[Rfam]
RNA sequence: AGCACCUUUAAGAACAGUCCAGAGAGGCUGGGAAGGUAAACGUCAUACUGUAGAGGGAUUACUCUACUCUAUUUCACUACGCAUUUUUAUGCCCUUUCCGAGGUUUUUCUUGGAGAGGGCUUUUAUU
Numbered sequence: 001a002g003c004a005c006c007u008u009u010a011a012g013a014a015c016a017g018u019c020c021a022g023a024g025a026g027g028c029u030g031g032g033a034a035g036g037u038a039a040a041c042g043u044c045a046u047a048c049u050g051u052a053g054a055g056g057g058a059u060u061a062c063u064c065u066a067c068u069c070u071a072u073u074u075c076a077c078u079a080c081g082c083a084u085u086u087u088u089a090u091g092c093c094c095u096u097u098c099c100g101a102g103g104u105u106u107u108u109c110u111u112g113g114a115g116a117g118g119g120c121u122u123u124u125a126u127u
Base pairs, nucleotide, nucleotide: 004037005036006035007034008033009032015030016029017028018027019026045072046071047070050067051066052065053064054063055062089122091120092119093118094117095116096115097114098113099112100111101110102109
PyrR binding site: a 127-nucleotide RNA sequence from Savagea serpentis.
Pairs were carried over by alignment from the consensus structure, which is taken from published work.
The organism belongs to Savagea, within Bacteria.
It scores 62 bits against the family's covariance model.